U4 spliceosomal RNA: a 135-nucleotide RNA from Schizosaccharomyces pombe.
U4 small nuclear RNA (U4 snRNA) is a component of the major U2-dependent spliceosome.
Taxonomically the source falls in Schizosaccharomyces (Eukaryota, Fungi, Schizosaccharomycetes, Schizosaccharomycetaceae).
The family is grouped with related families in Rfam's "U4 clan".
By type it is a spliceosomal small nuclear RNA.
RNA sequence: AUCUUUGUGCACGGGUAUUACGCUUAUCAGUGAGGAACUUUUCCUAGAUGGCGUUAUUGCUAGUUGAAAACUAUUACCCUGACCGCUCCAACUCUCGUUAAGAGUUUUGGGAAUAUUUGGAAACCAACUUAUUGC
Numbered sequence: 001a002u003c004u005u006u007g008u009g010c011a012c013g014g015g016u017a018u019u020a021c022g023c024u025u026a027u028c029a030g031u032g033a034g035g036a037a038c039u040u041u042u043c044c045u046a047g048a049u050g051g052c053g054u055u056a057u058u059g060c061u062a063g064u065u066g067a068a069a070a071c072u073a074u075u076a077c078c079c080u081g082a083c084c085g086c087u088c089c090a091a092c093u094c095u096c097g098u099u100a101a102g103a104g105u106u107u108u109g110g111g112a113a114u115a116u117u118u119g120g121a122a123a124c125c126a127a128c129u130u131a132u133u134g135c
Base pairs, nucleotide, nucleotide: 020054021053022052023051024050026049027048028047034044035043036042087111088110089109090108091107094104095103096102125134126133127132